[Rfam]
RNA sequence: UAGGCGUAAACCGAAAAGCCGAUAAAUAGAGUAGGCA
Numbered sequence: 001u002a003g004g005c006g007u008a009a010a011c012c013g014a015a016a017a018g019c020c021g022a023u024a025a026a027u028a029g030a031g032u033a034g035g036c037a
Stems, first nucleotide, its partner, number of pairs: 003020003011035002

Overview: This 37-nucleotide sequence from Spongiivirga citrea belongs to the Rfam family "DUF805b RNA". Lineage of the source: Bacteria > Pseudomonadati > Flavobacteriia > Flavobacteriales > Spongiivirga. Its Rfam clan is "DUF805 clan".